Lysine riboswitch aptamer: a 183-nucleotide sequence from Metabacillus indicus. Pairs were carried over by alignment from the consensus structure, which is taken from published work. Riboswitches are metabolite binding domains within certain messenger RNAs that serve as precision sensors for their corresponding targets. The match comes from Rfam's covariance-model search (112 bits).
[Rfam]
RNA sequence: UGAUGAGGUAGAGGCGCGAAAAAGAAGAGUAGAUAGUGUGAGGAUGACAACUGAGAUCACUAUACAAAAGGCUUUUUUGCCGAAGUUAUGCAGCAUGCGUCAACAUCUGCACAGCUGGGGUUACCUUGAAUAAGGGUAACACUGUCAUUGCAGGGAUAUCUGCAAUGGUGGGCUACUGAUCGU
Number, nucleotide and partner (000 for none) at each position: 001u000002g000003a000004u000005g000006a000007g177008g176009u175010a174011g173012a000013g000014g000015c000016g080017c079018g078019a077020a076021a075022a074023a073024g072025a000026a000027g000028a000029g000030u000031a000032g000033a063034u062035a061036g060037u059038g058039u000040g000041a000042g000043g000044a000045u000046g000047a000048c000049a000050a000051c000052u000053g000054a000055g000056a000057u000058c038059a037060c036061u035062a034063u033064a000065c000066a000067a000068a000069a000070g000071g000072c024073u023074u022075u021076u020077u019078u018079g017080c016081c000082g000083a000084a116085g115086u114087u113088a000089u111090g110091c109092a108093g107094c000095a000096u000097g000098c000099g000100u000101c000102a000103a000104c000105a000106u000107c093108u092109g091110c090111a089112c000113a087114g086115c085116u084117g143118g142119g000120g140121u139122u138123a137124c136125c135126u134127u133128g000129a000130a000131u000132a000133a127134g126135g125136g124137u123138a122139a121140c120141a000142c118143u117144g000145u168146c167147a166148u165149u164150g163151c162152a000153g000154g000155g000156a000157u000158a000159u000160c000161u000162g151163c150164a149165a148166u147167g146168g145169u000170g000171g000172g000173c011174u010175a009176c008177u007178g000179a000180u000181c000182g000183u000